This 119-nucleotide sequence from Alkalicoccus halolimnae belongs to the Rfam family "PyrR binding site". This family represents the PyrR binding site and terminator structure. By type it is a cis-regulatory element.

RNA sequence: CCUCCCUUUAAACUGGUCCUGUGAGACCGGCAAGGGGUAUAUUCGACUGUUUUCUUGCCAUAUACAGGCACAGAAGCAGGUGAAUGACCUCUUUGGGAUAACAAAGAGGUUUUUUGUCU
Numbered sequence: 001c002c003u004c005c006c007u008u009u010a011a012a013c014u015g016g017u018c019c020u021g022u023g024a025g026a027c028c029g030g031c032a033a034g035g036g037g038u039a040u041a042u043u044c045g046a047c048u049g050u051u052u053u054c055u056u057g058c059c060a061u062a063u064a065c066a067g068g069c070a071c072a073g074a075a076g077c078a079g080g081u082g083a084a085u086g087a088c089c090u091c092u093u094u095g096g097g098a099u100a101a102c103a104a105a106g107a108g109g110u111u112u113u114u115u116g117u118c119u
Stems, first nucleotide, its partner, number of pairs: 003037006013030006047079007056070004083114002086111010